[Rfam]
RNA: TPP riboswitch aptamer (THI element)
RNA sequence: AUUGGUCGCUAGGGGUGCCCAUAGAUGCUUGGGCUGAGAGAAAGCCGGGAAGGCUUUUAACCCUUGAACCUGAUCUGGAUCAUACCAGCGUAGGAAAGUAACCGGACCGUACA
Numbered sequence: 001a002u003u004g005g006u007c008g009c010u011a012g013g014g015g016u017g018c019c020c021a022u023a024g025a026u027g028c029u030u031g032g033g034c035u036g037a038g039a040g041a042a043a044g045c046c047g048g049g050a051a052g053g054c055u056u057u058u059a060a061c062c063c064u065u066g067a068a069c070c071u072g073a074u075c076u077g078g079a080u081c082a083u084a085c086c087a088g089c090g091u092a093g094g095a096a097a098g099u100a101a102c103c104g105g106a107c108c109g110u111a112c113a
Stems, first nucleotide, its partner, number of pairs: 006101001008099003011064004017034005041057005069094004075088004